[Rfam]
RNA sequence: GCAUUCGGAUGCGGCUUGGCCUCGGUCCGCUCGGCUUUCGACCCUGGUGCACCUUCCCCGGCACCAGGUGCGACGGGCGGGCGGGGACCUGGCGGCAUCGGGAGACGUAC
Dot-bracket structure: .........(((.(((.((.(((.((((((((.....(((..((((((((..........))))))))..))).)))))))).))).)).))).))).............